[Rfam]
Record summary:
A member of the RNA family "MIR807 microRNA precursor family" from Oryza nivara, 175 nucleotides long. Rfam 15.1 lists 1,514 matches to the family in 13 species.

RNA sequence: AACCACACUAUCAAUGAAUGGAUUCACCUGUGAGAUGACGUGGUUGUUCCACCUAUGAUGAGGACGUGGCAUCCUUUGAUUUUGUGCAAUGGCUUGUAAUAGGAUGCCACGUUCUUGUCCUAAGUGGAACAACCACGUUAUAUCACGGGUGAAUCCAUUUAUUGAUAGUAUGAUU
Number, nucleotide and partner (000 for none) at each position: 001a175002a174003c000004c172005a171006c000007a169008c000009u167010a166011u165012c164013a163014a162015u161016g000017a159018a158019u157020g000021g155022a154023u153024u152025c151026a150027c149028c148029u000030g146031u145032g144033a143034g000035a141036u140037g139038a138039c137040g000041u135042g134043g133044u132045u131046g130047u129048u128049c000050c000051a125052c124053c000054u122055a121056u000057g119058a118059u000060g000061a000062g000063g113064a112065c111066g000067u000068g000069g107070c106071a105072u104073c103074c102075u101076u000077u099078g000079a097080u000081u000082u000083u000084g000085u000086g000087c000088a000089a000090u000091g000092g000093c000094u000095u000096g000097u079098a000099a077100u000101a075102g074103g073104a072105u071106g070107c069108c000109a000110c000111g065112u064113u063114c000115u000116u000117g000118u058119c057120c000121u055122a054123a000124g052125u051126g000127g000128a048129a047130c046131a045132a044133c043134c042135a041136c000137g039138u038139u037140a036141u035142a000143u033144c032145a031146c030147g000148g028149g027150u026151g025152a024153a023154u022155c021156c000157a019158u018159u017160u000161a015162u014163u013164g012165a011166u010167a009168g000169u007170a000171u005172g004173a000174u002175u001
The match comes from Rfam's covariance-model search (156 bits). NCBI's taxonomy places the organism under Eukaryota, Streptophytina, Euphyllophyta, Oryzeae, Oryza. The base pairs follow the family's consensus structure, which was predicted with WAR.